[Rfam]
RNA sequence: UACUUUUGCGCCUUGAUUACCAAAGUGGUAGUCGGUACAUAAAAAUCAUUUAAGUAAUAUUCGCAUG
Dot-bracket structure: .............((((((.........)))))).................................
Numbered sequence: 001u002a003c004u005u006u007u008g009c010g011c012c013u014u015g016a017u018u019a020c021c022a023a024a025g026u027g028g029u030a031g032u033c034g035g036u037a038c039a040u041a042a043a044a045a046u047c048a049u050u051u052a053a054g055u056a057a058u059a060u061u062c063g064c065a066u067g
Stems, first nucleotide, its partner, number of pairs: 014034006
S15-Flavobacteria ribosomal protein leader: a 67-nucleotide sequence from Ulvibacter antarcticus. Taxonomically the source falls in Ulvibacter (Bacteria, Bacteroidota, Flavobacteriia, Flavobacteriales). Its Rfam clan is "Ribosomal Protein S15 Leader clan".